Background:
Shown here is a 349-nucleotide sequence from Saimiri boliviensis, a member of the family "Bag-1 internal ribosome entry site (IRES)". About the family: This family represents the bag-1 internal ribosome entry site (IRES). The base pairs follow the family's consensus structure, which was predicted with PFOLD. Rfam links the family to the GO term ribosome binding.
[Rfam]
RNA sequence: UGGGCGCUCAACAAGCGUGGGCCUGGCUGCGCGCGGCGGGGCGCGGAGACCGCGAGGCGACCGGGAGCGGCUGGGCUUCCGGCUGCGCGCCCCUCGGCCCGGUCGGGAGUCGCGCCAGUCGGAGCCCCCGACCCAGCACGGCCCACCUCCUUCUCGGCGUCCAUCUGUCCGGGGUGCAGCCAGCGGGCAUGACCGACCCACCAGGGGCGCCGCCGCCGGCGCUCGCAGGCCGCGGAUGAAGAAGAAAACCCGGCGCCGCUCGGUCCGGAGCGAGGAGCAGACCCUGAGUGAGGAGGCGACCGGUAGCGAGGCGGCCCAGAGUGGGGAGGCGACCCUGGGCGAAGAUAUG
Number, nucleotide and partner (000 for none) at each position: 001u000002g000003g000004g000005c000006g000007c000008u000009c000010a000011a000012c000013a000014a000015g000016c000017g000018u000019g000020g104021g103022c102023c101024u000025g099026g098027c097028u000029g000030c000031g000032c000033g000034c000035g000036g000037c000038g093039g092040g091041g090042c089043g053044c052045g051046g050047a000048g000049a000050c046051c045052g044053c043054g000055a000056g000057g000058c000059g000060a000061c082062c081063g080064g079065g078066a077067g076068c075069g000070g000071c000072u000073g000074g000075g068076c067077u066078u065079c064080c063081g062082g061083c000084u000085g000086c000087g000088c000089g042090c041091c040092c039093c038094u000095c000096g000097g027098c026099c025100c000101g023102g022103u021104c020105g000106g000107g000108a000109g000110u000111c000112g000113c000114g000115c000116c000117a000118g000119u000120c000121g000122g000123a000124g000125c000126c000127c000128c000129c000130g000131a000132c000133c000134c000135a000136g000137c000138a000139c000140g000141g000142c000143c000144c331145a000146c329147c328148u327149c326150c325151u000152u000153c000154u000155c000156g000157g000158c000159g000160u000161c000162c000163a000164u000165c000166u189167g188168u187169c186170c185171g184172g000173g000174g000175u000176g000177c000178a000179g000180c000181c000182a000183g000184c171185g170186g169187g168188c167189a166190u000191g000192a000193c000194c000195g000196a000197c000198c000199c000200a000201c000202c000203a000204g000205g224206g223207g222208c221209g220210c219211c218212g217213c000214c000215g000216c000217c212218g211219g210220c209221g208222c207223u206224c205225g000226c000227a000228g000229g000230c000231c000232g000233c000234g000235g000236a000237u000238g000239a000240a000241g000242a000243a000244g000245a000246a000247a000248a000249c000250c000251c000252g000253g000254c000255g000256c000257c272258g271259c270260u269261c268262g000263g000264u000265c000266c000267g000268g261269a260270g259271c258272g257273a000274g000275g000276a000277g000278c000279a000280g000281a000282c000283c000284c000285u000286g000287a000288g000289u000290g000291a000292g000293g000294a000295g000296g000297c000298g000299a000300c000301c000302g000303g000304u000305a000306g000307c000308g000309a000310g000311g000312c000313g000314g000315c000316c000317c000318a000319g000320a000321g000322u000323g000324g000325g150326g149327a148328g147329g146330c000331g144332a000333c000334c000335c000336u000337g000338g000339g000340c000341g000342a000343a000344g000345a000346u000347a000348u000349g000